[Rfam]
RNA: Small nucleolar RNA SNORA12
RNA sequence: AGUUGUGGUGGUUUUCUUUCUGGCGCAUUUGUGAAGUUUUCAGAUGGGCCUAACUCUACCACAUAUACGACGUCGGAGCUGGGAAGGGCUGGGUGGCAAACAGGACUCCCUGAAGCCUUUCCUGUAGCAGAGCUCGGCUCCCACAGGU
Numbered sequence: 001a002g003u004u005g006u007g008g009u010g011g012u013u014u015u016c017u018u019u020c021u022g023g024c025g026c027a028u029u030u031g032u033g034a035a036g037u038u039u040u041c042a043g044a045u046g047g048g049c050c051u052a053a054c055u056c057u058a059c060c061a062c063a064u065a066u067a068c069g070a071c072g073u074c075g076g077a078g079c080u081g082g083g084a085a086g087g088g089c090u091g092g093g094u095g096g097c098a099a100a101c102a103g104g105a106c107u108c109c110c111u112g113a114a115g116c117c118u119u120u121c122c123u124g125u126a127g128c129a130g131a132g133c134u135c136g137g138c139u140c141c142c143a144c145a146g147g148u
Stems, first nucleotide, its partner, number of pairs: 005062007022050003026046006075141006081090002108132001110130002